[Rfam]
RNA sequence: GGGCUGUGAUGAGGCAUAGAGAUAGUCAUGCACCACUCUGAUUUUUAGUGCUGAAAAUUUUCUCAUACCCAUUUUUCUGAGCCC
Numbered sequence: 001g002g003g004c005u006g007u008g009a010u011g012a013g014g015c016a017u018a019g020a021g022a023u024a025g026u027c028a029u030g031c032a033c034c035a036c037u038c039u040g041a042u043u044u045u046u047a048g049u050g051c052u053g054a055a056a057a058u059u060u061u062c063u064c065a066u067a068c069c070c071a072u073u074u075u076u077c078u079g080a081g082c083c084c
Stems, first nucleotide, its partner, number of pairs: 001084004
Dot-bracket structure: ((((............................................................................))))
Rfam assigns this 84-nucleotide RNA from Lupinus albus to the family "Small nucleolar RNA Z221/R21b".
Gene Ontology terms of the family: nucleolus and RNA processing.
The family's consensus secondary structure was predicted with WAR.
The family has 12 seed sequences and 588 matches in Rfam 15.1.
The source organism's lineage runs through Eukaryota, Spermatophyta, Magnoliopsida, Fabales and Lupinus.